The family of this 138-nucleotide RNA from Acetonema longum is "Group II catalytic intron D1-D4-4". It scores 102 bits against the family's covariance model. NCBI's taxonomy places the organism under Bacteria, Negativicutes, Acetonemataceae, Acetonema, Acetonema longum.
RNA sequence: UAGCCGGUGAAAGUCCGGUGCGGGUAAUCGUCAGGGAGCCCGUUAGCGUAACUGCCAUGCGUAGGAGAAAUCCUGGGUAUGAAGCGCAGGGGUAAGUAGUCAAACAGACUGUGAGCGAGCAUGCAGGCCGCAAUGAAA
Numbered sequence: 001u002a003g004c005c006g007g008u009g010a011a012a013g014u015c016c017g018g019u020g021c022g023g024g025u026a027a028u029c030g031u032c033a034g035g036g037a038g039c040c041c042g043u044u045a046g047c048g049u050a051a052c053u054g055c056c057a058u059g060c061g062u063a064g065g066a067g068a069a070a071u072c073c074u075g076g077g078u079a080u081g082a083a084g085c086g087c088a089g090g091g092g093u094a095a096g097u098a099g100u101c102a103a104a105c106a107g108a109c110u111g112u113g114a115g116c117g118a119g120c121a122u123g124c125a126g127g128c129c130g131c132a133a134u135g136a137a138a
Stems, first nucleotide, its partner, number of pairs: 020043005052089004056081005065072002096112006115131003